[Rfam]
RNA sequence: AGCUUUGCGCAGUGGCAGUAUCGUAGCCAAUGAAGUUUAUCUGAGAUGUGAUUAUUGCCAAUUGAAAGCUUCUCCCAGUACCCUGCCAUGACAACUCGCAGUAUAGUUGACACUGGCAAUCUUUUAUAGUCUCUAUGGAGA
Numbered sequence: 001a002g003c004u005u006u007g008c009g010c011a012g013u014g015g016c017a018g019u020a021u022c023g024u025a026g027c028c029a030a031u032g033a034a035g036u037u038u039a040u041c042u043g044a045g046a047u048g049u050g051a052u053u054a055u056u057g058c059c060a061a062u063u064g065a066a067a068g069c070u071u072c073u074c075c076c077a078g079u080a081c082c083c084u085g086c087c088a089u090g091a092c093a094a095c096u097c098g099c100a101g102u103a104u105a106g107u108u109g110a111c112a113c114u115g116g117c118a119a120u121c122u123u124u125u126a127u128a129g130u131c132u133c134u135a136u137g138g139a140g141a
Base pairs, nucleotide, nucleotide: 020052021051022050023049024048026047028045034042035041085117086116087115089112090111092109093108094107095106096105130141131140132139133138
The record is a 141-nucleotide RNA sequence from Theropithecus gelada, which matches "U4 spliceosomal RNA" in Rfam. NCBI's taxonomy places the organism under Eukaryota, Eumetazoa, Vertebrata, Theria, Theropithecus. The base pairs follow the family's consensus structure, which is taken from published work. About the family: U4 small nuclear RNA (U4 snRNA) is a component of the major U2-dependent spliceosome.